[Rfam]
Notes: The record is a 151-nucleotide RNA from Medicago truncatula, which matches "MIR2619 microRNA precursor family" in Rfam.
RNA sequence: AAACAGCCCCCUAUGUUUUGAUUCUUUGGCAGUUUUGGACCCCCAGUCCAUUAGUGAGGUGCCACGUGUAUUAUUUAGAGGGCCACGUGGCACCUCACUAAUGAACUGGGGGUCCAAAACUGCCAAAAAAUCAAAACAUAGGGGGCUGUUU
Number, nucleotide and partner (000 for none) at each position: 001a151002a150003a000004c148005a147006g146007c145008c144009c000010c000011c000012u140013a139014u138015g137016u136017u135018u134019u133020g132021a131022u130023u129024c000025u127026u126027u125028g124029g123030c122031a121032g120033u119034u118035u117036u116037g115038g114039a113040c112041c111042c110043c109044c108045a107046g000047u000048c000049c000050a000051u000052u000053a000054g000055u000056g000057a095058g094059g000060u092061g091062c090063c089064a088065c087066g086067u085068g000069u000070a000071u000072u000073a000074u000075u000076u000077a000078g000079a000080g000081g000082g000083c000084c000085a067086c066087g065088u064089g063090g062091c061092a060093c000094c058095u057096c000097a000098c000099u000100a000101a000102u000103g000104a000105a000106c000107u045108g044109g043110g042111g041112g040113u039114c038115c037116a036117a035118a034119a033120c032121u031122g030123c029124c028125a027126a026127a025128a000129a023130a022131u021132c020133a019134a018135a017136a016137c015138a014139u013140a012141g000142g000143g000144g008145g007146c006147u005148g004149u000150u002151u001

The organism belongs to Medicago, within Eukaryota.